RNA sequence: GGGGCCAGUGAACCACCAUCAAGUGGCAGGAACGGGGGAACCAAUCUCGGUCACCCGGGCUCCGGCCCAGUGACCUUGGGGUGAAGCCCGCAGCAGCGGGCCGGACGUCUCCAGUCCGAACCCGACAGCUCACCUCGUCGGCUCAAACAGGAGAAAGC
Numbered sequence: 001g002g003g004g005c006c007a008g009u010g011a012a013c014c015a016c017c018a019u020c021a022a023g024u025g026g027c028a029g030g031a032a033c034g035g036g037g038g039a040a041c042c043a044a045u046c047u048c049g050g051u052c053a054c055c056c057g058g059g060c061u062c063c064g065g066c067c068c069a070g071u072g073a074c075c076u077u078g079g080g081g082u083g084a085a086g087c088c089c090g091c092a093g094c095a096g097c098g099g100g101c102c103g104g105a106c107g108u109c110u111c112c113a114g115u116c117c118g119a120a121c122c123c124g125a126c127a128g129c130u131c132a133c134c135u136c137g138u139c140g141g142c143u144c145a146a147a148c149a150g151g152a153g154a155a156a157g158c
Stems, first nucleotide, its partner, number of pairs: 003143004013030002032138006042078002079123003087100004103117004

The record is a 158-nucleotide RNA sequence from Actinomyces slackii, which matches "c-di-AMP riboswitch aptamer (ydaO/yuaA leader)" in Rfam.
The base pairs follow the family's consensus structure.